[Rfam]
RNA: Bacterial RNase P class A
RNA sequence: UGUGCAAGUCGGUCUGUCGCCGUUCCGUCCUGAUGACCUCAGGAUAGGAAAGGAGGAAAGUCCGGGCAACAUAGAGCGCCAUACUUCCUAACGGGAAGGGAGCUGAUUGGAGACGGUCAGCUUACAGAAAGUGCCACAGAAAAUAUACCGUCCCGAUAGCUAUCGGGAUAAGGGUGAAAAGGUGGGGUAAGAGCCCACCGCCUCAGUGGUGACAUUGAGGGCAGGGUAAACCUUAUGGGUUGAAAGAUCAAAUAGGCCUCGGGCAAAGAGCUGCUCGUUCGAUUUCUGCUUCGGCAGAAUUCCGGGGUGGGUAGAUCGAUGGAUCCUGACUGUGAAGUCAGGGCUAGAUAAAUGACAGACCAUCUCUCCCAUUUGGGAUGAAGAUGACAGAACCCGGCUUACAGACUUGCACAUUUC
Numbered sequence: 001u002g003u004g005c006a007a008g009u010c011g012g013u014c015u016g017u018c019g020c021c022g023u024u025c026c027g028u029c030c031u032g033a034u035g036a037c038c039u040c041a042g043g044a045u046a047g048g049a050a051a052g053g054a055g056g057a058a059a060g061u062c063c064g065g066g067c068a069a070c071a072u073a074g075a076g077c078g079c080c081a082u083a084c085u086u087c088c089u090a091a092c093g094g095g096a097a098g099g100g101a102g103c104u105g106a107u108u109g110g111a112g113a114c115g116g117u118c119a120g121c122u123u124a125c126a127g128a129a130a131g132u133g134c135c136a137c138a139g140a141a142a143a144u145a146u147a148c149c150g151u152c153c154c155g156a157u158a159g160c161u162a163u164c165g166g167g168a169u170a171a172g173g174g175u176g177a178a179a180a181g182g183u184g185g186g187g188u189a190a191g192a193g194c195c196c197a198c199c200g201c202c203u204c205a206g207u208g209g210u211g212a213c214a215u216u217g218a219g220g221g222c223a224g225g226g227u228a229a230a231c232c233u234u235a236u237g238g239g240u241u242g243a244a245a246g247a248u249c250a251a252a253u254a255g256g257c258c259u260c261g262g263g264c265a266a267a268g269a270g271c272u273g274c275u276c277g278u279u280c281g282a283u284u285u286c287u288g289c290u291u292c293g294g295c296a297g298a299a300u301u302c303c304g305g306g307g308u309g310g311g312u313a314g315a316u317c318g319a320u321g322g323a324u325c326c327u328g329a330c331u332g333u334g335a336a337g338u339c340a341g342g343g344c345u346a347g348a349u350a351a352a353u354g355a356c357a358g359a360c361c362a363u364c365u366c367u368c369c370c371a372u373u374u375g376g377g378a379u380g381a382a383g384a385u386g387a388c389a390g391a392a393c394c395c396g397g398c399u400u401a402c403a404g405a406c407u408u409g410c411a412c413a414u415u416u417c
Base pairs, nucleotide, nucleotide: 001413002412003411004410005409006408007407008406009405010404011402012360013359014358015357016356017355018354020053021052023050024049025048026047058400059399060398062397063396064395065394066393067242068241069240070239076295077294079238080237081236082235083234084098085097086096087095088094099125100123101122102121103120104119105118106117107116108115109114126233127232131231132230133227134226135225148173149172150169151168152167153166154165155164156163157162181199182198183197184196185195186194200222201220202219203218204217205216206215207214208213246317247316248315249314256308257307258306259305260304261303288301290299291298292297324343325342326341327340328339329338330337331336